[Rfam]
RNA: Small nucleolar RNA snoR60
Organism: Ceratopteris richardii
RNA sequence: UGGCAGAUGAUGAUAAUAUUCGGAUUCCCCUUCAAGAUGUUUAUAAUUAUGAUUGAAUGUUCCGUCGACUGAUGCC
Number, nucleotide and partner (000 for none) at each position: 001u000002g076003g075004c074005a073006g000007a000008u000009g000010a000011u000012g000013a000014u000015a000016a000017u000018a000019u000020u000021c000022g000023g000024a000025u000026u000027c000028c000029c000030c000031u000032u000033c000034a000035a000036g000037a000038u000039g000040u000041u000042u000043a000044u000045a000046a000047u000048u000049a000050u000051g000052a000053u000054u000055g000056a000057a000058u000059g000060u000061u000062c000063c000064g000065u000066c000067g000068a000069c000070u000071g000072a000073u005074g004075c003076c002